[Rfam]
RNA sequence: AACAUGCUUCCUUAGAUCCACCUUUGUGGGUGUCAAUCUUGAAUUCAGUGCUACUUGUGAACUUAUUGUUUCUUGUAGUUCUGGUCAGAGAAACACCCAGCAACUUUUUUGGUUGUAUCGUCAAAGGUGCUUGAGUCAUGGGCAUGUGAGAGAAAUAUACCUGCAUGUUAGUCUUACGUCCUGGUAGAAAUGGCAUGCAAUUGUGCUGGCAUAUUUGACUAUCAGGACUCGACUGGUGUGCGGACACU
Numbered sequence: 001a002a003c004a005u006g007c008u009u010c011c012u013u014a015g016a017u018c019c020a021c022c023u024u025u026g027u028g029g030g031u032g033u034c035a036a037u038c039u040u041g042a043a044u045u046c047a048g049u050g051c052u053a054c055u056u057g058u059g060a061a062c063u064u065a066u067u068g069u070u071u072c073u074u075g076u077a078g079u080u081c082u083g084g085u086c087a088g089a090g091a092a093a094c095a096c097c098c099a100g101c102a103a104c105u106u107u108u109u110u111g112g113u114u115g116u117a118u119c120g121u122c123a124a125a126g127g128u129g130c131u132u133g134a135g136u137c138a139u140g141g142g143c144a145u146g147u148g149a150g151a152g153a154a155a156u157a158u159a160c161c162u163g164c165a166u167g168u169u170a171g172u173c174u175u176a177c178g179u180c181c182u183g184g185u186a187g188a189a190a191u192g193g194c195a196u197g198c199a200a201u202u203g204u205g206c207u208g209g210c211a212u213a214u215u216u217g218a219c220u221a222u223c224a225g226g227a228c229u230c231g232a233c234u235g236g237u238g239u240g241c242g243g244a245c246a247c248u
Stems, first nucleotide, its partner, number of pairs: 002147007011135005019129008027099006037091004043085003048081001051078004057072001059071004100116006161243005168236001170234004180226008191218001193216001195214001198208002
RNA: Small nucleolar RNA SNORA53
Organism: Galemys pyrenaicus